[Rfam]
RNA sequence: CUAUCUACCUAAAUUACGUGUUAUACACGUAAACCUUGGUAGAUUUAGUAUAUAAAUAAAUAGGUC
Numbered sequence: 001c002u003a004u005c006u007a008c009c010u011a012a013a014u015u016a017c018g019u020g021u022u023a024u025a026c027a028c029g030u031a032a033a034c035c036u037u038g039g040u041a042g043a044u045u046u047a048g049u050a051u052a053u054a055a056a057u058a059a060a061u062a063g064g065u066c
Base pairs, nucleotide, nucleotide: 003044004043005042006041007040008039009038015031016030017029018028019027020026021025033065034064035063036062
This 66-nucleotide RNA sequence from Crinivirus tomatichlorosis belongs to the Rfam family "3'-terminal pseudoknot in SPCSV". The organism belongs to Crinivirus tomatichlorosis, within Viruses. A reference for the family is Livieratos et al. (2004), "Analysis of the RNA of Potato yellow vein virus: evidence for a tripartite genome and conserved 3'-terminal structures among members of the genus Crinivirus", J Gen Virol. It scores 48 bits against the family's covariance model.